The family of this 403-nucleotide sequence from Actinacidiphila reveromycinica is "Bacterial RNase P class A". NCBI's taxonomy places the organism under Bacteria, Actinomycetes, Kitasatosporales, Streptomycetaceae, Actinacidiphila. The base pairs follow the family's consensus structure, which is taken from published work. By type it is a ribozyme.

RNA sequence: CGAGCCGGGCGGACGGUCGCGUCGGAUCAGCAGUGAUCCGCCGAGGAACGUCCGGGCUCCACAGGGCAAGGUGAUGGCUAACGGCCACCCGGGGUGACCCGCGGGACAGUGCCACAGAAAACAGACCGCCGGGGAUUUCGGUCGCCGGUAAGGGUGAAACGGUGGUGUAAGAGACCACCAGUGCCCAGGGCGACCUGGGCAGCUAGGUAAACCCCACCUGGAGCAAGGUCAAGAGGGCGCCAUAGCGAUAUGGCCCCGCGCGGACGUUCGAGGGCUGCCCGCCCGAGUUCGCGGGUAGACCGCAUGAGGCUGUCGGCAACGGCAGCCCUAGAUGGAUGGCCGUCUCCCCGGCCGCCGCGAGGCGACCGGGCGACAGAACCCGGCGUACAGCCCGACUCGUCUG
Numbered sequence: 001c002g003a004g005c006c007g008g009g010c011g012g013a014c015g016g017u018c019g020c021g022u023c024g025g026a027u028c029a030g031c032a033g034u035g036a037u038c039c040g041c042c043g044a045g046g047a048a049c050g051u052c053c054g055g056g057c058u059c060c061a062c063a064g065g066g067c068a069a070g071g072u073g074a075u076g077g078c079u080a081a082c083g084g085c086c087a088c089c090c091g092g093g094g095u096g097a098c099c100c101g102c103g104g105g106a107c108a109g110u111g112c113c114a115c116a117g118a119a120a121a122c123a124g125a126c127c128g129c130c131g132g133g134g135a136u137u138u139c140g141g142u143c144g145c146c147g148g149u150a151a152g153g154g155u156g157a158a159a160c161g162g163u164g165g166u167g168u169a170a171g172a173g174a175c176c177a178c179c180a181g182u183g184c185c186c187a188g189g190g191c192g193a194c195c196u197g198g199g200c201a202g203c204u205a206g207g208u209a210a211a212c213c214c215c216a217c218c219u220g221g222a223g224c225a226a227g228g229u230c231a232a233g234a235g236g237g238c239g240c241c242a243u244a245g246c247g248a249u250a251u252g253g254c255c256c257c258g259c260g261c262g263g264a265c266g267u268u269c270g271a272g273g274g275c276u277g278c279c280c281g282c283c284c285g286a287g288u289u290c291g292c293g294g295g296u297a298g299a300c301c302g303c304a305u306g307a308g309g310c311u312g313u314c315g316g317c318a319a320c321g322g323c324a325g326c327c328c329u330a331g332a333u334g335g336a337u338g339g340c341c342g343u344c345u346c347c348c349c350g351g352c353c354g355c356c357g358c359g360a361g362g363c364g365a366c367c368g369g370g371c372g373a374c375a376g377a378a379c380c381c382g383g384c385g386u387a388c389a390g391c392c393c394g395a396c397u398c399g400u401c402u403g
Base pairs, nucleotide, nucleotide: 001399002398003397004396006394007393008392009391010390011388012344013343014342015341016340017339018338020043021042023040024039025038026037027036028035048386049385050384052383053382054381055380056379057223058222059221060220064280065279066278067277069219070218071217072216073215075087076086077085078084089103090101091100092099093098104214105213109212110211111208112207113206126153127152128149129148130147131146132145134143135142136141161179162178163177164176165175166174181203182201183200184199185198186197187196188195189194227301228300229299230298237292238291239290272284273283274282275281308327309326310325311324312323313322314321315320